A member of the RNA family "L31-Firmicutes ribosomal protein leader", 31 nucleotides long. Clan: Ribosomal Protein L31 Leader clan. The sequence is in the family's curated seed alignment.
[Rfam]
RNA sequence: CUAUGACUUGUAUUAGUCAUGGCGAAAGGAG
Numbered sequence: 001c002u003a004u005g006a007c008u009u010g011u012a013u014u015a016g017u018c019a020u021g022g023c024g025a026a027a028g029g030a031g
Stems, first nucleotide, its partner, number of pairs: 001022008